Archaeal large subunit ribosomal RNA: a 546-nucleotide part of an RNA from Halococcus morrhuae.
Taxonomically the source falls in Halococcus (Archaea, Methanobacteriota, Halobacteria, Halococcaceae).
RNA sequence: CUACUAUGCCAACUGGUGAAUAGCUCGGCUCGAGUGCCGAUGAAGGACGUGCCAAGCUGCGAUAAGCUCAGGGGAGCCGCACGGAGGCGAAGAACCUGAGAUUUCCGAAUGGGAAUCCCCACCGCAAUUGCCUUCGCGCAAUGGGGAACGCCGGGAACUGAAACAUCUCAGUACCGGCAGGAAGAGAAACCGAAUGGGAUGUCGUUACUAACGGCGAGUGAACGCGACACAGUCCAAACCGAAGCUUACGGGGCUUUGCCCCACGAGCAAUGUGGUGUUCGGACUGACUCUCAGCACCGGAUCGUCUGUGUGAAGUCUCCUGGAACGGAGCGUGAGACAGGGUGAAAACCCCGUAACACAGACCAGUACGGUGUGCGUCAGCUCCAGAGUAUCGGGGGUUGGAUAUCCCUCGUGAAUAUGGCCGGCAUCGACGGCCAAGACUAAACACAUCUCGAGACCGAUAGUGAACAAGUAGCGUGAGCGAACGCUGAAAAGCACCCCACAAAGGGAGGUGCAAUAGGGCUUGAACUCAGUUGGCGAUCGAGC
Numbered sequence: 001c002u003a004c005u006a007u008g009c010c011a012a013c014u015g016g017u018g019a020a021u022a023g024c025u026c027g028g029c030u031c032g033a034g035u036g037c038c039g040a041u042g043a044a045g046g047a048c049g050u051g052c053c054a055a056g057c058u059g060c061g062a063u064a065a066g067c068u069c070a071g072g073g074g075a076g077c078c079g080c081a082c083g084g085a086g087g088c089g090a091a092g093a094a095c096c097u098g099a100g101a102u103u104u105c106c107g108a109a110u111g112g113g114a115a116u117c118c119c120c121a122c123c124g125c126a127a128u129u130g131c132c133u134u135c136g137c138g139c140a141a142u143g144g145g146g147a148a149c150g151c152c153g154g155g156a157a158c159u160g161a162a163a164c165a166u167c168u169c170a171g172u173a174c175c176g177g178c179a180g181g182a183a184g185a186g187a188a189a190c191c192g193a194a195u196g197g198g199a200u201g202u203c204g205u206u207a208c209u210a211a212c213g214g215c216g217a218g219u220g221a222a223c224g225c226g227a228c229a230c231a232g233u234c235c236a237a238a239c240c241g242a243a244g245c246u247u248a249c250g251g252g253g254c255u256u257u258g259c260c261c262c263a264c265g266a267g268c269a270a271u272g273u274g275g276u277g278u279u280c281g282g283a284c285u286g287a288c289u290c291u292c293a294g295c296a297c298c299g300g301a302u303c304g305u306c307u308g309u310g311u312g313a314a315g316u317c318u319c320c321u322g323g324a325a326c327g328g329a330g331c332g333u334g335a336g337a338c339a340g341g342g343u344g345a346a347a348a349c350c351c352c353g354u355a356a357c358a359c360a361g362a363c364c365a366g367u368a369c370g371g372u373g374u375g376c377g378u379c380a381g382c383u384c385c386a387g388a389g390u391a392u393c394g395g396g397g398g399u400u401g402g403a404u405a406u407c408c409c410u411c412g413u414g415a416a417u418a419u420g421g422c423c424g425g426c427a428u429c430g431a432c433g434g435c436c437a438a439g440a441c442u443a444a445a446c447a448c449a450u451c452u453c454g455a456g457a458c459c460g461a462u463a464g465u466g467a468a469c470a471a472g473u474a475g476c477g478u479g480a481g482c483g484a485a486c487g488c489u490g491a492a493a494a495g496c497a498c499c500c501c502a503c504a505a506a507g508g509g510a511g512g513u514g515c516a517a518u519a520g521g522g523c524u525u526g527a528a529c530u531c532a533g534u535u536g537g538c539g540a541u542c543g544a545g546c
Base pairs, nucleotide, nucleotide: 007539008538009537010536011535012534013533014532015531016530022524023488024487027459028458029456030455031454032453033452034451035449036448045106046105047104048061049060050059067100068099069098070097071096072095076088077087078086111120112119113118127142128141129140130139131138149180150178151177152176153175154174160167161166190197191196201228202227203226204225205224211219212218231442232441233440234439239275240274241273250262251261252260285380286379287378288377295373296372297371298370309358310357311356315331317330318329319328320327334338340352341351342350393412394411395410396409397408398407420436421435422434423433424432475482476481
Dot-bracket structure: ......((((((((((.....(((..((((((((((........((((((........))).....((((((...(((.......)))......))))))...)))....(((....)))......(((((......)))))......((((((.....((....))......))))).).........((....))...(((((.....((.....))....)))))..((((....(((........(((.......)))..........))).........((((......((((..........(((...(.((((......)))))..(...).(((.......)))...)))...........))))...))))............((((((........)))))).......(((((.......)))))..)))).....)).)))))).))...............((....))....))...................................).....)))))))))).......
The base pairs follow the family's consensus structure, which is taken from published work.